[Rfam]
A member of the RNA family "Lysine riboswitch aptamer" from Propionigenium maris, 170 nucleotides long.

RNA sequence: UAGAUGGAUAGAGGUCGCGAUGAUUAUGAGUAACUCCUGGAGCUAGUGGAAGGCUGUGAAGAGAGGGAAAGGAUGAUUUGCCGAAGAGAGGAUCUCCACAAGGUCUUUUUCUGGGGUUAUUAGUUAACAGCUAUAACACUGUCAUCGAAUGAUGGGGAGCUAUCUGGUUU
Numbered sequence: 001u002a003g004a005u006g007g008a009u010a011g012a013g014g015u016c017g018c019g020a021u022g023a024u025u026a027u028g029a030g031u032a033a034c035u036c037c038u039g040g041a042g043c044u045a046g047u048g049g050a051a052g053g054c055u056g057u058g059a060a061g062a063g064a065g066g067g068a069a070a071g072g073a074u075g076a077u078u079u080g081c082c083g084a085a086g087a088g089a090g091g092a093u094c095u096c097c098a099c100a101a102g103g104u105c106u107u108u109u110u111c112u113g114g115g116g117u118u119a120u121u122a123g124u125u126a127a128c129a130g131c132u133a134u135a136a137c138a139c140u141g142u143c144a145u146c147g148a149a150u151g152a153u154g155g156g157g158a159g160c161u162a163u164c165u166g167g168u169u170u
Stems, first nucleotide, its partner, number of pairs: 006165006017081004025073001034065003038061001085112003088108008113140002116137004121133004142155005

The source organism's lineage runs through Bacteria, Fusobacteriota, Fusobacteriales, Propionigenium and Propionigenium maris.